[Rfam]
RNA sequence: GGAUGUGAGGGCGAUCUGGCUGCGACAUCUGUCACCCCAUUGAUCGCUAGGGUUGAUUCGGCUGAUCUGGCUGGCUAGGCGGGUGUCCCCUUCCUCCCUCACCACUCCAUGUGCGUCCCUCCCGAAGCUCCGCGCUCGGUGGAAGAGGACAUCCUAGAUGGACGAGCAUCGUUGGUAUAGAAGUAGCUGCUACCCUGCUAGAACCUCCAAACAAGCUCAAGGCCCAUUUGUAGGAGAAACGUAGGGAAGUCAAGCUUCGCGACUUAGACACAUCCAAGUGAGGCGCUGCACGUGGCAGUCUGCCUUCCUUU
Numbered sequence: 001g002g003a004u005g006u007g008a009g010g011g012c013g014a015u016c017u018g019g020c021u022g023c024g025a026c027a028u029c030u031g032u033c034a035c036c037c038c039a040u041u042g043a044u045c046g047c048u049a050g051g052g053u054u055g056a057u058u059c060g061g062c063u064g065a066u067c068u069g070g071c072u073g074g075c076u077a078g079g080c081g082g083g084u085g086u087c088c089c090c091u092u093c094c095u096c097c098c099u100c101a102c103c104a105c106u107c108c109a110u111g112u113g114c115g116u117c118c119c120u121c122c123c124g125a126a127g128c129u130c131c132g133c134g135c136u137c138g139g140u141g142g143a144a145g146a147g148g149a150c151a152u153c154c155u156a157g158a159u160g161g162a163c164g165a166g167c168a169u170c171g172u173u174g175g176u177a178u179a180g181a182a183g184u185a186g187c188u189g190c191u192a193c194c195c196u197g198c199u200a201g202a203a204c205c206u207c208c209a210a211a212c213a214a215g216c217u218c219a220a221g222g223c224c225c226a227u228u229u230g231u232a233g234g235a236g237a238a239a240c241g242u243a244g245g246g247a248a249g250u251c252a253a254g255c256u257u258c259g260c261g262a263c264u265u266a267g268a269c270a271c272a273u274c275c276a277a278g279u280g281a282g283g284c285g286c287u288g289c290a291c292g293u294g295g296c297a298g299u300c301u302g303c304c305u306u307c308c309u310u311u
Base pairs, nucleotide, nucleotide: 001108002107003106005102006101007100008099009098010097011096013093014092018090019089024087025086026085027084028083029082030081031080032079033078035074036073037070038069039068042067043066044065045064046062047061048060117166118164120162121161122139123138124137125136127135128134140158147154148153186255187254188253190249191248193246194245195244196243197242198241205236206235207234208233211231212230213229214228215227276311277310278309280306281305282304283303284302285299286298287297288296289295
About this RNA: The family of this 311-nucleotide RNA from Clarias magur is "7SK RNA". Clan: 7SK clan. Rfam's curators write: 7SK was discovered as an abundant small nuclear RNA in the mid-70s but a possible function has only recently been suggested. It scores 307 bits against the family's covariance model. By type it is a non-coding RNA gene. Pairs were carried over by alignment from the consensus structure, which is taken from published work. On this family, see Blencowe, Curr Biol 2002: "Transcription: surprising role for an elusive small nuclear RNA".